[Rfam]
RNA sequence: AUCAAGUCUAGGGUAGCUCCCGAACGGGCGGUAACCUCACCGCUUUGGCUUGGCUUUUUCAUUGAGG
Numbered sequence: 001a002u003c004a005a006g007u008c009u010a011g012g013g014u015a016g017c018u019c020c021c022g023a024a025c026g027g028g029c030g031g032u033a034a035c036c037u038c039a040c041c042g043c044u045u046u047g048g049c050u051u052g053g054c055u056u057u058u059u060c061a062u063u064g065a066g067g
Base pairs, nucleotide, nucleotide: 002053003052004051005050006049007048008047011021012020013019027044028043029042030041031040035067036066037065038064039063
Dot-bracket structure: .(((((((..(((.....))).....(((((...[[[[[)))))..))))))).........]]]]]
The family of this 67-nucleotide RNA from Thalassotalea piscium is "int-alpA RNA". The family's consensus secondary structure is taken from published work. Rfam's curators write: Acidobacteria (1 example), Planctomycetes (1 example), Proteobacteria.